[Rfam]
RNA: permuted transfer-messenger RNA
Organism: Sneathiella litorea
RNA sequence: GGUAAUAAACGUUUCAUGGAAUAAACGUUGCGGACCCGGGGGCGGUACCCGGCGCCUCCACCAUAAAGGCAGAUAUAUACAAGUAAUCAGCUGUCUUUUUGAUGGGGGCGAAAUAGGCUCGACGCGCGCAGUAAAGAUGUAAUUUUUACCCGGCAUGAUACCACCGACAUCGGGUCAUUUUUAUAAAUGCUAACGAUAAUGACGAAGCAUUUGCCGUAGCUGCUUAA
Numbered sequence: 001g002g003u004a005a006u007a008a009a010c011g012u013u014u015c016a017u018g019g020a021a022u023a024a025a026c027g028u029u030g031c032g033g034a035c036c037c038g039g040g041g042g043c044g045g046u047a048c049c050c051g052g053c054g055c056c057u058c059c060a061c062c063a064u065a066a067a068g069g070c071a072g073a074u075a076u077a078u079a080c081a082a083g084u085a086a087u088c089a090g091c092u093g094u095c096u097u098u099u100u101g102a103u104g105g106g107g108g109c110g111a112a113a114u115a116g117g118c119u120c121g122a123c124g125c126g127c128g129c130a131g132u133a134a135a136g137a138u139g140u141a142a143u144u145u146u147u148a149c150c151c152g153g154c155a156u157g158a159u160a161c162c163a164c165c166g167a168c169a170u171c172g173g174g175u176c177a178u179u180u181u182u183a184u185a186a187a188u189g190c191u192a193a194c195g196a197u198a199a200u201g202a203c204g205a206a207g208c209a210u211u212u213g214c215c216g217u218a219g220c221u222g223c224u225u226a227a
Stems, first nucleotide, its partner, number of pairs: 001150005015139003026128003030125003036052005053110007151166003